[Rfam]
RNA sequence: GGCGUAAAGAGUGCGUAGGUGGUUACCUAAGCGCAAGGUUUAAAUUAGAGGCUCAACCUCUACAUGCCUUGCGAACUGGGCUACUUGAGUGCAGGAGGGGAAAGCGGAAUUCCUAGUGUAGCGGUGAAAUGCGUAGAUAUUAGGAGGAACACCGGCGGCGAAGGCGGCUUUCUGGACUGUAACUGACACUGAGGCACGAAAGCGUGGGUAGCAAACAGGAUUAGAUACCCUGGUAGUCCACGCCGUAAACGAUGAGCACUAGGUGUUGGGUCCGUUAGGACUCAGUGCCGCAGUUAACGCAAUAAGUGCUCCGCCUGGGGAGUACGCUCGCAAGAGUAAAACUCAAAGGAAU
Numbered sequence: 001g002g003c004g005u006a007a008a009g010a011g012u013g014c015g016u017a018g019g020u021g022g023u024u025a026c027c028u029a030a031g032c033g034c035a036a037g038g039u040u041u042a043a044a045u046u047a048g049a050g051g052c053u054c055a056a057c058c059u060c061u062a063c064a065u066g067c068c069u070u071g072c073g074a075a076c077u078g079g080g081c082u083a084c085u086u087g088a089g090u091g092c093a094g095g096a097g098g099g100g101a102a103a104g105c106g107g108a109a110u111u112c113c114u115a116g117u118g119u120a121g122c123g124g125u126g127a128a129a130u131g132c133g134u135a136g137a138u139a140u141u142a143g144g145a146g147g148a149a150c151a152c153c154g155g156c157g158g159c160g161a162a163g164g165c166g167g168c169u170u171u172c173u174g175g176a177c178u179g180u181a182a183c184u185g186a187c188a189c190u191g192a193g194g195c196a197c198g199a200a201a202g203c204g205u206g207g208g209u210a211g212c213a214a215a216c217a218g219g220a221u222u223a224g225a226u227a228c229c230c231u232g233g234u235a236g237u238c239c240a241c242g243c244c245g246u247a248a249a250c251g252a253u254g255a256g257c258a259c260u261a262g263g264u265g266u267u268g269g270g271u272c273c274g275u276u277a278g279g280a281c282u283c284a285g286u287g288c289c290g291c292a293g294u295u296a297a298c299g300c301a302a303u304a305a306g307u308g309c310u311c312c313g314c315c316u317g318g319g320g321a322g323u324a325c326g327c328u329c330g331c332a333a334g335a336g337u338a339a340a341a342c343u344c345a346a347a348g349g350a351a352u
Stems, first nucleotide, its partner, number of pairs: 001315003009312001011197004016191001018190003022084002026080003030077002032073008046062006088184003091180004099173007106150001110146008121132003158165002202243006211237002216232004254311006262289012293300002317344003326337004
This 352-nucleotide part of an RNA from Mogibacterium sp. CM50 belongs to the Rfam family "Bacterial small subunit ribosomal RNA". The family is grouped with related families in Rfam's "SSU clan". A reference for the family is Yusupov et al. (2001), "Crystal structure of the ribosome at 5.5 A resolution", Science.